[Rfam]
RNA sequence: CUCUGUAUUCUUCCACAGCUUUCUUGAACUGCAACCAUUUGUGGGAAUCUUAACUGCAGUUCAAUAAAGCUGUGGGAAAUUACGGAGA
Dot-bracket structure: ..(((((.....(((.((((((.((((.(((((.....................))))).)))).)))))).))).....)))))...
Shown here is an 88-nucleotide RNA from Cocos nucifera, a member of the family "MIR396 microRNA precursor family". Its family is annotated with miRNA-mediated post-transcriptional gene silencing and RISC complex in the Gene Ontology. The family's consensus secondary structure was predicted with WAR. The match comes from Rfam's covariance-model search (90 bits). Taxonomically the source falls in Cocos (Eukaryota, Spermatophyta, Liliopsida, Arecaceae). The literature on the family includes a 2004 paper in Mol Cell by Jones-Rhoades and Bartel, "Computational identification of plant microRNAs and their targets, including a stress-induced miRNA".